A member of the RNA family "RpsF leader" from Motilimonas pumila, 87 nucleotides long.
RNA sequence: GUCAUCAACCUUUUGUUCCUUGCCUCUGACGGUACCAGACUGAGCCGCACACAGAGGCUGACUAAACCCGUAAGGAUCAAGUAAAUG
Numbered sequence: 001g002u003c004a005u006c007a008a009c010c011u012u013u014u015g016u017u018c019c020u021u022g023c024c025u026c027u028g029a030c031g032g033u034a035c036c037a038g039a040c041u042g043a044g045c046c047g048c049a050c051a052c053a054g055a056g057g058c059u060g061a062c063u064a065a066a067c068c069c070g071u072a073a074g075g076a077u078c079a080a081g082u083a084a085a086u087g
Stems, first nucleotide, its partner, number of pairs: 015078001017076005022058006031046003

Gene Ontology terms of the family: negative regulation of translation and protein binding. The organism belongs to Motilimonas, within Bacteria. Rfam describes the family as follows. Conserved and widely distributed to many bacterial species RNA structure. It precedes operon containing rpsF, which encodes ribosomal protein S6. A search with the family's covariance model found it, with a score of 41 bits. By type it is a cis-regulatory leader.